This 88-nucleotide sequence from Galbula dea belongs to the Rfam family "Small nucleolar SNORD12/SNORD106". Gene Ontology terms of the family: RNA processing and nucleolus. Pairs were carried over by alignment from the consensus structure, which was predicted with RNAalifold. The match comes from Rfam's covariance-model search (72 bits). The family has 8 seed sequences and 2,264 matches in Rfam 15.1. By type it is a C/D-box small nucleolar RNA.
Nucleotides: 088
Base pairs, nucleotide, nucleotide: 001088002087003086004085005084006083007082009080
Number, partner (000 for none) and nucleotide at each position: 001088g002087c003086u004085g005084g006083u007082g008000g009080a010000c011000g012000u013000g014000a015000u016000g017000a018000c019000u020000g021000u022000u023000u024000u025000u026000u027000c028000c029000c030000c031000a032000u033000c034000a035000g036000a037000g038000c039000g040000a041000u042000a043000g044000u045000g046000c047000u048000g049000a050000u051000u052000u053000c054000u055000u056000g057000c058000u059000g060000u061000u062000a063000a064000g065000c066000c067000a068000g069000a070000u071000c072000a073000u074000g075000u076000c077000u078000g079000a080009u081000g082007c083006a084005c085004c086003a087002g088001c